[Rfam]
RNA sequence: UCCUCACCAAAGCUGCGUUUCUUUGCUUCCACACAGACAACUACGAUUUACCUCGUCGUUGUCCAUCAUCCUGCAAAUGAGAAAUUCGGAGUAAUCUUCACAUUACACAAACACUCAUCUUGUUUCAACUCUUGUUGUUCGAGCUCUGAGUUACUGCCUGCGAGGGCCUGACGUGACACGUCUGCACCUGGCAUCAGAAAUUUCAGAACGUCUUGACCCUUUUCGAACUCGCUUUUUAGAGGGAAGAGCUCGCGUUUCUAUGGGAGCCGGUGCGAAGAUUGUGUGCGAGUGUUUGUACACUUGCGAUACUUGAGUGCAAUACGCAGCGUUUCUUCUUCUCUUGAAGUUAUAAUUCGAUUCCGAUUACUCGGGUGAGGA
Numbered sequence: 001u002c003c004u005c006a007c008c009a010a011a012g013c014u015g016c017g018u019u020u021c022u023u024u025g026c027u028u029c030c031a032c033a034c035a036g037a038c039a040a041c042u043a044c045g046a047u048u049u050a051c052c053u054c055g056u057c058g059u060u061g062u063c064c065a066u067c068a069u070c071c072u073g074c075a076a077a078u079g080a081g082a083a084a085u086u087c088g089g090a091g092u093a094a095u096c097u098u099c100a101c102a103u104u105a106c107a108c109a110a111a112c113a114c115u116c117a118u119c120u121u122g123u124u125u126c127a128a129c130u131c132u133u134g135u136u137g138u139u140c141g142a143g144c145u146c147u148g149a150g151u152u153a154c155u156g157c158c159u160g161c162g163a164g165g166g167c168c169u170g171a172c173g174u175g176a177c178a179c180g181u182c183u184g185c186a187c188c189u190g191g192c193a194u195c196a197g198a199a200a201u202u203u204c205a206g207a208a209c210g211u212c213u214u215g216a217c218c219c220u221u222u223u224c225g226a227a228c229u230c231g232c233u234u235u236u237u238a239g240a241g242g243g244a245a246g247a248g249c250u251c252g253c254g255u256u257u258c259u260a261u262g263g264g265a266g267c268c269g270g271u272g273c274g275a276a277g278a279u280u281g282u283g284u285g286c287g288a289g290u291g292u293u294u295g296u297a298c299a300c301u302u303g304c305g306a307u308a309c310u311u312g313a314g315u316g317c318a319a320u321a322c323g324c325a326g327c328g329u330u331u332c333u334u335c336u337u338c339u340c341u342u343g344a345a346g347u348u349a350u351a352a353u354u355c356g357a358u359u360c361c362g363a364u365u366a367c368u369c370g371g372g373u374g375a376g377g378a
Base pairs, nucleotide, nucleotide: 001378002377003376004375007372008371014326019321022077023076024075025074036063037062038061039060040059041058087362088361089360090359091358096277097276098275099274156167157166158165159164170182171181172180173179184273185272186271187270188269190267205259206258207257328350329349332346333345334344
Nuclear RNase P: a 378-nucleotide RNA from Aureobasidium namibiae. The match comes from Rfam's covariance-model search (42 bits). Taxonomically the source falls in Aureobasidium namibiae (Eukaryota, leotiomyceta, Dothideales, Aureobasidium). The family's consensus secondary structure is taken from published work. By type it is a ribozyme.